A member of the RNA family "RT-6 RNA" from Luoshenia tenuis, 75 nucleotides long. The family's consensus secondary structure is taken from published work. The family's RNA type in Rfam is small RNA. A search with the family's covariance model found it, with a score of 66 bits.
RNA sequence: UGCUCUAAACUCAAGGUUUAGAGGAAGGAGAUUGUUGUCAACAGUCCGGAGCAGAUUUCUUCCAGAAAUCCACGA
Numbered sequence: 001u002g003c004u005c006u007a008a009a010c011u012c013a014a015g016g017u018u019u020a021g022a023g024g025a026a027g028g029a030g031a032u033u034g035u036u037g038u039c040a041a042c043a044g045u046c047c048g049g050a051g052c053a054g055a056u057u058u059c060u061u062c063c064a065g066a067a068a069u070c071c072a073c074g075a
Stems, first nucleotide, its partner, number of pairs: 003023008054070006